[Rfam]
The family of this 98-nucleotide sequence from Asparagus officinalis is "Small nucleolar RNA U54". The family is grouped with related families in Rfam's "U54 clan". U54 is a C/D box small nucleolar RNA, which acts as a methylation guide for 18S ribosomal RNA in plants. The family's RNA type in Rfam is C/D-box small nucleolar RNA. NCBI's taxonomy places the organism under Eukaryota, Embryophyta, Petrosaviidae, Asparagoideae, Asparagus. The match comes from Rfam's covariance-model search (43 bits). Gene Ontology terms of the family: RNA processing and nucleolus.
RNA sequence: GGCCCAAUGAUUGCCGCCAGUAGUAUCUGGCGAUAUACGCUAUUCUGAGAACUUAAGCUAGCUUAAGUGCUGAUGCUAAACAAUAAAAUAUGAGAGCU
Numbered sequence: 001g002g003c004c005c006a007a008u009g010a011u012u013g014c015c016g017c018c019a020g021u022a023g024u025a026u027c028u029g030g031c032g033a034u035a036u037a038c039g040c041u042a043u044u045c046u047g048a049g050a051a052c053u054u055a056a057g058c059u060a061g062c063u064u065a066a067g068u069g070c071u072g073a074u075g076c077u078a079a080a081c082a083a084u085a086a087a088a089u090a091u092g093a094g095a096g097c098u
Stems, first nucleotide, its partner, number of pairs: 001098003005094001